Description
The family of this 150-nucleotide part of an RNA from Strigomonas culicis is "Eukaryotic small subunit ribosomal RNA". Its Rfam clan is "SSU clan".
RNA sequence: CCGCCCGUCAUUGUUUCCGAUGAUGGUGGAAUACAGGUGAUCGGACGAACGAAACGCACGUUUCGCUCGAAAGUUCACCGAUAUUUCUUCAAUAGAGGAAGCAAAAGUCGUAACAAGGUAGCUGUAGGUGAACCUGCAGCUGGAUCAUUU
Numbered sequence: 001c002c003g004c005c006c007g008u009c010a011u012u013g014u015u016u017c018c019g020a021u022g023a024u025g026g027u028g029g030a031a032u033a034c035a036g037g038u039g040a041u042c043g044g045a046c047g048a049a050c051g052a053a054a055c056g057c058a059c060g061u062u063u064c065g066c067u068c069g070a071a072a073g074u075u076c077a078c079c080g081a082u083a084u085u086u087c088u089u090c091a092a093u094a095g096a097g098g099a100a101g102c103a104a105a106a107g108u109c110g111u112a113a114c115a116a117g118g119u120a121g122c123u124g125u126a127g128g129u130g131a132a133c134c135u136g137c138a139g140c141u142g143g144a145u146c147a148u149u150u
Stems, first nucleotide, its partner, number of pairs: 001117001003114001006110002009107001011104008021094002024091003028087006036079005042073001046069003050065006119142010